[Rfam]
RNA sequence: UUUAGGAGGAAGGCAGAUGCAAAGCAUUUCUUUCAUGCCUUCCGACGAUUUGACGCCGAAUCGCAGAUGAGAGGGCGUUACCUUAA
Numbered sequence: 001u002u003u004a005g006g007a008g009g010a011a012g013g014c015a016g017a018u019g020c021a022a023a024g025c026a027u028u029u030c031u032u033u034c035a036u037g038c039c040u041u042c043c044g045a046c047g048a049u050u051u052g053a054c055g056c057c058g059a060a061u062c063g064c065a066g067a068u069g070a071g072a073g074g075g076c077g078u079u080a081c082c083u084u085a086a
Stems, first nucleotide, its partner, number of pairs: 008043006016028004052076001054074001057071001060068002
Background: GA-cis RNA: an 86-nucleotide RNA sequence from Lachnospiraceae bacterium M18-1. Taxonomically the source falls in Lachnospiraceae (Bacteria, Bacillati, Bacillota, Lachnospirales). Pairs were carried over by alignment from the consensus structure, which is taken from published work. A search with the family's covariance model found it, with a score of 51 bits.